[Rfam]
RNA sequence: CUUAGAAGAGGUCUUAAGUGUUUAUGAAAAGCACGGCAUUAACGGACAUAUAGAGUGGAAGCGAUAGGAGAAAACCUAAAGUCCAAUGGUGGCCACGACUGGACUUGAACCAGCGACCACUACCA
Numbered sequence: 001c002u003u004a005g006a007a008g009a010g011g012u013c014u015u016a017a018g019u020g021u022u023u024a025u026g027a028a029a030a031g032c033a034c035g036g037c038a039u040u041a042a043c044g045g046a047c048a049u050a051u052a053g054a055g056u057g058g059a060a061g062c063g064a065u066a067g068g069a070g071a072a073a074a075c076c077u078a079a080a081g082u083c084c085a086a087u088g089g090u091g092g093c094c095a096c097g098a099c100u101g102g103a104c105u106u107g108a109a110c111c112a113g114c115g116a117c118c119a120c121u122a123c124c125a
Stems, first nucleotide, its partner, number of pairs: 014038001020032004047061001049059001087122006096115002099113004
The record is a 125-nucleotide sequence from Helicobacter felis, which matches "Bacterial antisense RNA HPnc0260" in Rfam. It scores 66 bits against the family's covariance model. The base pairs follow the family's consensus structure, which was predicted with CMfinder. A reference for the family is Sharma et al. (2010), "The primary transcriptome of the major human pathogen Helicobacter pylori", Nature.